[Rfam]
RNA sequence: UAAAUAGGAAGUUCGAUUAAGAUCGCUGCAUCCUGCAGCAACAUCGAACCAACCCAUGUCCUGUGGG
Numbered sequence: 001u002a003a004a005u006a007g008g009a010a011g012u013u014c015g016a017u018u019a020a021g022a023u024c025g026c027u028g029c030a031u032c033c034u035g036c037a038g039c040a041a042c043a044u045c046g047a048a049c050c051a052a053c054c055c056a057u058g059u060c061c062u063g064u065g066g067g
Base pairs, nucleotide, nucleotide: 011049012048013047014046015045016044017043025039026038027037028036029035053067054066055065056064057063
A member of the RNA family "Bacillaceae-1 RNA" from Pontibacillus yanchengensis, 67 nucleotides long.
Rfam 15.1 lists 5,721 matches to the family in 247 species.
The source organism's lineage runs through Bacteria, Bacillati, Caryophanales, Pontibacillus and Pontibacillus yanchengensis.